[Rfam]
Nucleotides: 114
Stems, first nucleotide, its partner, number of pairs: 001113004042057005
Number, partner (000 for none) and nucleotide at each position: 001113c002112u003111c004110c005000g006000a007000u008000g009000a010000u011000g012000a013000g014000c015000c016000u017000g018000c019000c020000a021000u022000g023000c024000u025000a026000a027000u028000a029000c030000c031000g032000a033000u034000g035000c036000a037000c038000c039000a040000g041000a042057c043056u044055g045054a046053c047000u048000g049000c050000g051000c052000u053046g054045u055044u056043a057042g058000u059000c060000u061000g062000g063000g064000u065000g066000u067000g068000g069000g070000u071000g072000a073000g074000u075000u076000u077000a078000a079000c080000u081000u082000a083000c084000c085000u086000u087000c088000u089000c090000a091000c092000a093000c094000a095000u096000g097000g098000a099000g100000u101000g102000u103000g104000c105000a106000c107000u108000g109000a110004g111003g112002a113001g114000a
This 114-nucleotide RNA sequence from Scleropages formosus belongs to the Rfam family "Small nucleolar RNA U6-53/MBII-28". On this family, see Huttenhofer et al., EMBO J 2001: "RNomics: an experimental approach that identifies 201 candidates for novel, small, non-messenger RNAs in mouse". NCBI's taxonomy places the organism under Eukaryota, Vertebrata, Teleostei, Osteoglossocephala, Scleropages. Pairs were carried over by alignment from the consensus structure.